RNA sequence: UCGUGAGUCGCUGCUGGGCAAGAGCGACAACGGCGGACUCCGGUCACGCCCGGGAAGGGUGCGACGGGGUUUCACCAGAAAAAGGAA
Number, nucleotide and partner (000 for none) at each position: 001u000002c000003g000004u000005g000006a000007g034008u033009c032010g031011c000012u029013g028014c000015u026016g000017g000018g025019c024020a000021a000022g000023a000024g019025c018026g015027a000028c013029a012030a000031c010032g009033g008034c007035g072036g071037a070038c069039u068040c067041c066042g065043g000044u064045c063046a000047c061048g060049c059050c058051c057052g000053g000054g000055a000056a000057g051058g050059g049060u048061g047062c000063g045064a044065c042066g041067g040068g039069g038070u037071u036072u035073c000074a000075c000076c000077a000078g000079a000080a000081a000082a000083a000084g000085g000086a000087a000